[Rfam]
RNA: Betaproteobacteria toxic small RNA
Organism: Janthinobacterium sp. KBS0711
RNA sequence: UGUCUCCUCCAAUUCGUUCUCCGAACAUUGGAUUCAGCCCGCGAAUACAACCGCGGGCUUUUUUUU
Numbered sequence: 001u002g003u004c005u006c007c008u009c010c011a012a013u014u015c016g017u018u019c020u021c022c023g024a025a026c027a028u029u030g031g032a033u034u035c036a037g038c039c040c041g042c043g044a045a046u047a048c049a050a051c052c053g054c055g056g057g058c059u060u061u062u063u064u065u066u
Stems, first nucleotide, its partner, number of pairs: 008032006036059008